A member of the RNA family "Small nucleolar RNA SNORD19" from Podarcis muralis, 77 nucleotides long.
The pairing is the family consensus, mapped onto this sequence.
It scores 58 bits against the family's covariance model.
By type it is a C/D-box small nucleolar RNA.
RNA sequence: GAGCUAUGAGGAAGAUACAAAAUGAUACUGAUGUACCUCUGAUGACUGUCAGAUCCAACUCUGAGCUCACUGUUCCG
Numbered sequence: 001g002a003g004c005u006a007u008g009a010g011g012a013a014g015a016u017a018c019a020a021a022a023u024g025a026u027a028c029u030g031a032u033g034u035a036c037c038u039c040u041g042a043u044g045a046c047u048g049u050c051a052g053a054u055c056c057a058a059c060u061c062u063g064a065g066c067u068c069a070c071u072g073u074u075c076c077g
Stems, first nucleotide, its partner, number of pairs: 001068004